[Rfam]
RNA sequence: UGCAAGUGCACUCUGUGUCACAUUGAUUUGCCACAUGUGAUGACAAUUUGUUAACUUGCCAGAUCAAACCAAAGCUGCGUUUAUCCAUGUGAUUGUGUCCUUAAGACUAGUUGCAUUGAAAACGCGCCUUACACUCC
Numbered sequence: 001u002g003c004a005a006g007u008g009c010a011c012u013c014u015g016u017g018u019c020a021c022a023u024u025g026a027u028u029u030g031c032c033a034c035a036u037g038u039g040a041u042g043a044c045a046a047u048u049u050g051u052u053a054a055c056u057u058g059c060c061a062g063a064u065c066a067a068a069c070c071a072a073a074g075c076u077g078c079g080u081u082u083a084u085c086c087a088u089g090u091g092a093u094u095g096u097g098u099c100c101u102u103a104a105g106a107c108u109a110g111u112u113g114c115a116u117u118g119a120a121a122a123c124g125c126g127c128c129u130u131a132c133a134c135u136c137c
Base pairs, nucleotide, nucleotide: 002059003058004057005056006055007054010051011050014045015044016043017041018040019039020038021037022036023035025034066135071129074127075126078124079123084119085118087116088115089114090113091112092111093110094109
RNA: Small nucleolar RNA psi18S-841/snoR66